[Rfam]
The record is a 72-nucleotide RNA sequence from Marinilabilia salmonicolor, which matches "tRNA" in Rfam.
About the family: Transfer RNA (tRNA) molecules are approximately 80 nucleotides in length. Their secondary structure includes four short double-helical elements and three loops (D, anti-codon, and T loops). Further hydrogen bonds mediate the characteristic L-shaped molecular structure. tRNAs have two regions of fundamental functional importance: the anti-codon, which is responsible for specific mRNA codon recognition, and the 3' end, to which the tRNAs corresponding amino acid is attached (by aminoacyl-tRNA synthetases). tRNAs cope with the degeneracy of the genetic code in two manners: having more than one tRNA (with a specific anti-codon) for a particular amino acid; and 'wobble' base-pairing, i.e. permitting non-standard base-pairing at the 3rd anti-codon position.
It is annotated as a transfer RNA.
RNA sequence: GGCUCCAUAGUUCAAGGGAUAGAACAAGAGUUUCCUAAACUCUAGAUACAGGUUCGAGUCCUGUUGGGGCUA
Numbered sequence: 001g002g003c004u005c006c007a008u009a010g011u012u013c014a015a016g017g018g019a020u021a022g023a024a025c026a027a028g029a030g031u032u033u034c035c036u037a038a039a040c041u042c043u044a045g046a047u048a049c050a051g052g053u054u055c056g057a058g059u060c061c062u063g064u065u066g067g068g069g070c071u072a
Base pairs, nucleotide, nucleotide: 001071002070003069004068005067006066007065010025011024012023013022027043028042029041030040031039048064049063050062051061052060